[Rfam]
RNA sequence: CUCUUAUCAAGAGUGGUGGAGGGACUGGCCCGAUGAAACCCGGCAACCGGCAUUUAUAUGCGUUUGGUGCCAAAUCCUGCAGGAAAAAACCUGAGAGAUGAGAG
Numbered sequence: 001c002u003c004u005u006a007u008c009a010a011g012a013g014u015g016g017u018g019g020a021g022g023g024a025c026u027g028g029c030c031c032g033a034u035g036a037a038a039c040c041c042g043g044c045a046a047c048c049g050g051c052a053u054u055u056a057u058a059u060g061c062g063u064u065u066g067g068u069g070c071c072a073a074a075u076c077c078u079g080c081a082g083g084a085a086a087a088a089a090c091c092u093g094a095g096a097g098a099u100g101a102g103a104g
Base pairs, nucleotide, nucleotide: 001104002103003102004101005100006099007098008097013041015040016039017038021031022030023029025079027077028076042071043070044069045068047067048066049063075096080093081092082091083090

SAM riboswitch aptamer (S box leader): a 104-nucleotide sequence from Thermoanaerobacterium thermosaccharolyticum. The organism belongs to Thermoanaerobacterium thermosaccharolyticum, within Bacteria.